[Rfam]
RNA sequence: GUCAGAGUAGGCAGACUGCGUCAAGUGCCUUUACAUGGGAUGUCGGUAAAGGACGAAGAUGGUUCAUCGCGGUAGUCUGCUGCAUCCGCUGCG
Numbered sequence: 001g002u003c004a005g006a007g008u009a010g011g012c013a014g015a016c017u018g019c020g021u022c023a024a025g026u027g028c029c030u031u032u033a034c035a036u037g038g039g040a041u042g043u044c045g046g047u048a049a050a051g052g053a054c055g056a057a058g059a060u061g062g063u064u065c066a067u068c069g070c071g072g073u074a075g076u077c078u079g080c081u082g083c084a085u086c087c088g089c090u091g092c093g
Base pairs, nucleotide, nucleotide: 003091004090005089010081011080012079013078014077015076016075017074018073019071020070021069025054026053028052029051030050031049032048033047034046038087039086040085041084042083058068059067060066061065